This 62-nucleotide RNA belongs to the Rfam family "RAGATH-18 RNA".

RNA sequence: CCUUUAGACUACUAAGAAAACUCAAGUAGCUUUUAGCAAAAGAGAGUAGGUUGAUGAAGGAA
Dot-bracket structure: (((((...(((((.......(((.....(((...)))....))))))))......)))))..
Annotation:
Rfam describes the family as follows. Actinobacteria, Firmicutes, Fusobacteria, Thermotogae (1 example).